[Rfam]
Nucleotides: 036
Stems, first nucleotide, its partner, number of pairs: 002021004010035003
Number, partner (000 for none) and nucleotide at each position: 001000a002021c003020a004019g005018u006000g007000a008000a009000a010035a011034c012033c013000g014000a015000a016000a017000a018005a019004c020003u021002g022000a023000a024000a025000a026000a027000a028000g029000a030000g031000u032000a033012g034011g035010u036000a
A member of the RNA family "DUF805b RNA" from Flavobacterium sp. CF136, 36 nucleotides long. By type it is a cis-regulatory element. The family's consensus secondary structure is taken from published work. It is one of the family's seed sequences.